[Rfam]
RNA: Purine riboswitch aptamer
RNA sequence: UUAAAUAUUGUCGUUUUACGUCGUAUAAUCUGGGGAAUAUGGCCCAAAAGUAUCUACCAAGCUACCGUAAAUGGCUUGACUACGAGGUAAGUGUAAGUUUUG
Numbered sequence: 001u002u003a004a005a006u007a008u009u010g011u012c013g014u015u016u017u018a019c020g021u022c023g024u025a026u027a028a029u030c031u032g033g034g035g036a037a038u039a040u041g042g043c044c045c046a047a048a049a050g051u052a053u054c055u056a057c058c059a060a061g062c063u064a065c066c067g068u069a070a071a072u073g074g075c076u077u078g079a080c081u082a083c084g085a086g087g088u089a090a091g092u093g094u095a096a097g098u099u100u101u102g
Base pairs, nucleotide, nucleotide: 018088019087021085022084023083024082025081029049031047033045034044035043058078059077060076061075062074063073064072